[Rfam]
RNA sequence: GCUGCUGCUUGCACCCGCUGCUGGCGCCCAGCGCAGGUCCCGAUUGCUUGGCGCUGUCAGCAGGUGCAAGCGGUGGCUG
Numbered sequence: 001g002c003u004g005c006u007g008c009u010u011g012c013a014c015c016c017g018c019u020g021c022u023g024g025c026g027c028c029c030a031g032c033g034c035a036g037g038u039c040c041c042g043a044u045u046g047c048u049u050g051g052c053g054c055u056g057u058c059a060g061c062a063g064g065u066g067c068a069a070g071c072g073g074u075g076g077c078u079g
Base pairs, nucleotide, nucleotide: 004074005073006072007071008070009069010068011067012066013065014064015063017061018060019059020058022056023055024054025053026052027051028050
The family of this 79-nucleotide RNA from Myotis myotis is "mir-9198 microRNA precursor family". The family's consensus secondary structure was predicted with RNAalifold. Gene Ontology terms of the family: RISC complex and miRNA-mediated post-transcriptional gene silencing. The match comes from Rfam's covariance-model search (92 bits). The family has 6 seed sequences and 64 matches in Rfam 15.1.